Rfam assigns this 73-nucleotide RNA sequence from Sphingobium sp. TKS to the family "tRNA". Rfam links the family to the GO term triplet codon-amino acid adaptor activity.

[Rfam]
RNA sequence: GCCGCUUUAGCUCAGUCGGUAGAGCAUCGCAUUCGUAAUGCGAGGGUCGGAGGUUCGAGUCCUCUAGGCGGCA
Number, nucleotide and partner (000 for none) at each position: 001g072002c071003c070004g069005c068006u067007u066008u000009a000010g025011c024012u023013c022014a000015g000016u000017c000018g000019g000020u000021a000022g013023a012024g011025c010026a000027u043028c042029g041030c040031a039032u000033u000034c000035g000036u000037a000038a000039u031040g030041c029042g028043a027044g000045g000046g000047u000048c000049g065050g064051a063052g062053g061054u000055u000056c000057g000058a000059g000060u000061c053062c052063u051064c050065u049066a007067g006068g005069c004070g003071g002072c001073a000
About the family: Transfer RNA (tRNA) molecules are approximately 80 nucleotides in length. Their secondary structure includes four short double-helical elements and three loops (D, anti-codon, and T loops). Further hydrogen bonds mediate the characteristic L-shaped molecular structure. tRNAs have two regions of fundamental functional importance: the anti-codon, which is responsible for specific mRNA codon recognition, and the 3' end, to which the tRNAs corresponding amino acid is attached (by aminoacyl-tRNA synthetases). tRNAs cope with the degeneracy of the genetic code in two manners: having more than one tRNA (with a specific anti-codon) for a particular amino acid; and 'wobble' base-pairing, i.e. permitting non-standard base-pairing at the 3rd anti-codon position. The organism belongs to Sphingobium, within Bacteria.